[Rfam]
RNA sequence: AAACGUGCUCCGGGGUCGGUGUGAAUCCGAACCGGCGGUGACAGUCCGCGAGCGGCCUCCUCUGGGAGGUCGUUGACCCGGUGGAAAUCCGGGACCGACGGUGAUGCGACGAGAGUCGCGAGUCCGGAUGGGAGGCAGCACGAGA
Numbered sequence: 001a002a003a004c005g006u007g008c009u010c011c012g013g014g015g016u017c018g019g020u021g022u023g024a025a026u027c028c029g030a031a032c033c034g035g036c037g038g039u040g041a042c043a044g045u046c047c048g049c050g051a052g053c054g055g056c057c058u059c060c061u062c063u064g065g066g067a068g069g070u071c072g073u074u075g076a077c078c079c080g081g082u083g084g085a086a087a088u089c090c091g092g093g094a095c096c097g098a099c100g101g102u103g104a105u106g107c108g109a110c111g112a113g114a115g116u117c118g119c120g121a122g123u124c125c126g127g128a129u130g131g132g133a134g135g136c137a138g139c140a141c142g143a144g145a
Stems, first nucleotide, its partner, number of pairs: 004142006010134001017029003033097002035049004044095002052073003077093005099126003
Rfam assigns this 145-nucleotide RNA sequence from Microbacterium marinum to the family "FMN riboswitch aptamer (RFN element)". The match comes from Rfam's covariance-model search (83 bits). The RFN element is a highly conserved domain that is found frequently in the 5'-untranslated regions of prokaryotic mRNAs that encode for flavin mononucleotide (FMN) biosynthesis and transport proteins.